[Rfam]
RNA sequence: AGUUUUAUGAGGUAUCAGCACUUUCAUUAGUGGGGAAGGAAGGAUGAAAACUACAAAACGGCAGUAGACUUUUAAAGUUUAAAUAGCCAGGUCUGAGUGCCUGACCGUGCUCUUCCAUUUUACUUUAACCCUCCAAAGAAGUAUUCUGAUCCAGUUUCCCUGCUGAUCAGCAAGGGUAAGUUGAAAGU
Dot-bracket structure: .(((.(((...)))..)))...(((.((.(.(((((((....((((..((...............((((((.................))))))(.(((......))).)..)).))))...))))..))).).)).)))...........((((..(((((((....)))).)))...)))).....
Background: The record is a 188-nucleotide sequence from Cariama cristata, which matches "Connexin-43 internal ribosome entry site (IRES)" in Rfam. Taxonomically the source falls in Cariama (Eukaryota, Euteleostomi, Tetrapoda, Dinosauria). About the family: This family represents the connexin-43 internal ribosome entry site (IRES) which allows cap independent translation during conditions such as heat shock and stress. On this family, see Schiavi et al., FEBS Lett 1999: "Connexin43 mRNA contains a functional internal ribosome entry site". The family has 14 seed sequences and 657 matches in Rfam 15.1. Gene Ontology term of the family: ribosome binding.